[Rfam]
RNA sequence: UUUUUUUCAGUUACAGUGUUAACUAAAAUGG
Numbered sequence: 001u002u003u004u005u006u007u008c009a010g011u012u013a014c015a016g017u018g019u020u021a022a023c024u025a026a027a028a029u030g031g
Base pairs, nucleotide, nucleotide: 001031002030004028005027006026007025009024010023011022012021013020014018

A member of the RNA family "Iron response element II" from Meleagris gallopavo, 31 nucleotides long.
The match comes from Rfam's covariance-model search (34 bits).
Rfam describes the family as follows. IRE, TFRC, SLC40A1, SDHB, SLC11A2, CDC42BPA, ACO2, ALAS2_H.SAPIENS, CDC14A, EPAS1, ALAS2, qoxD, Hao1, NDUFS1, transferrin, Aconitate.
The literature on the family includes a 2006 paper in Biochem Biophys Res Commun by Cmejla et al., "A novel iron responsive element in the 3'UTR of human MRCKalpha".
By type it is a cis-regulatory element.